RNA sequence: ACCUUAUCAAGAGAGGCUGAGGGACAGGCCCUAUGAAGCCCAGCAACCACUUGGAAAAGGAAGGUGCUAAAUCCUGCUAGAGAGAAUUCUAGAAAGAUGAGGU
Numbered sequence: 001a002c003c004u005u006a007u008c009a010a011g012a013g014a015g016g017c018u019g020a021g022g023g024a025c026a027g028g029c030c031c032u033a034u035g036a037a038g039c040c041c042a043g044c045a046a047c048c049a050c051u052u053g054g055a056a057a058a059g060g061a062a063g064g065u066g067c068u069a070a071a072u073c074c075u076g077c078u079a080g081a082g083a084g085a086a087u088u089c090u091a092g093a094a095a096g097a098u099g100a101g102g103u
Base pairs, nucleotide, nucleotide: 001103002102003101004100005099006098007097008096013041015040016039017038021031022030023029025076026075027074028073042068043067044066045065047064048063050059051058052057072095077092078091079090080089081088082087
The family of this 103-nucleotide RNA from Intestinibacter bartlettii is "SAM riboswitch aptamer (S box leader)". NCBI's taxonomy places the organism under Bacteria, Clostridia, Peptostreptococcales, Intestinibacter, Intestinibacter bartlettii. Pairs were carried over by alignment from the consensus structure, which is taken from published work. The sequence is in the family's curated seed alignment. The family has 457 seed sequences and 9,625 matches in Rfam 15.1.